A member of the RNA family "GA-cis RNA", 91 nucleotides long.
RNA sequence: AUAAGGAGGGCUCCAAAUGAUGCGCAGCAUCAUUUAUCUGAUGAGCCCGUGACAUGCCGCCGAAGCUUCAGCUGAGGGGGCGAUACCGCAA
Numbered sequence: 001a002u003a004a005g006g007a008g009g010g011c012u013c014c015a016a017a018u019g020a021u022g023c024g025c026a027g028c029a030u031c032a033u034u035u036a037u038c039u040g041a042u043g044a045g046c047c048c049g050u051g052a053c054a055u056g057c058c059g060c061c062g063a064a065g066c067u068u069c070a071g072c073u074g075a076g077g078g079g080g081c082g083a084u085a086c087c088g089c090a091a
Stems, first nucleotide, its partner, number of pairs: 008048006017033006056081003060077002064073002
The family's consensus secondary structure is taken from published work.
It is one of the family's seed sequences.